[Rfam]
RNA: Mammalian CPEB3 ribozyme
Organism: Alligator mississippiensis
RNA sequence: ACAAGUUUGAAGGCUUUAGCAGAAGCACUCAUAGUACAGCCCUACCAGAUUCCAAUAAAUCUGCAAAUUCUGCU
Numbered sequence: 001a002c003a004a005g006u007u008u009g010a011a012g013g014c015u016u017u018a019g020c021a022g023a024a025g026c027a028c029u030c031a032u033a034g035u036a037c038a039g040c041c042c043u044a045c046c047a048g049a050u051u052c053c054a055a056u057a058a059a060u061c062u063g064c065a066a067a068u069u070c071u072g073c074u
Stems, first nucleotide, its partner, number of pairs: 012041004018074007025037001027035001046063006